Plastid-psbM 3UTR RNA: a 73-nucleotide sequence from Lactuca sativa.
Lineage of the source: Eukaryota > Streptophyta > Magnoliopsida > Asterales > Lactuca.
About the family: Plastid psbM is a non-coding RNA (ncRNA) recognised in plastids. It was found in the three prime untranslated region (3UTR) of psbM gene, its 3UTR location suggests a role in transcript maturation.
It is annotated as a cis-regulatory element.
Pairs were carried over by alignment from the consensus structure, which was predicted with LocARNA.
RNA sequence: GAUCCGAGAGUAUGGUAAGAAAUUUAUUACCAUACUCUUUAUUAGUGUUAUAGUAGUGUAUAAAGUUGUACUU
Numbered sequence: 001g002a003u004c005c006g007a008g009a010g011u012a013u014g015g016u017a018a019g020a021a022a023u024u025u026a027u028u029a030c031c032a033u034a035c036u037c038u039u040u041a042u043u044a045g046u047g048u049u050a051u052a053g054u055a056g057u058g059u060a061u062a063a064a065g066u067u068g069u070a071c072u073u
Stems, first nucleotide, its partner, number of pairs: 006039013020025001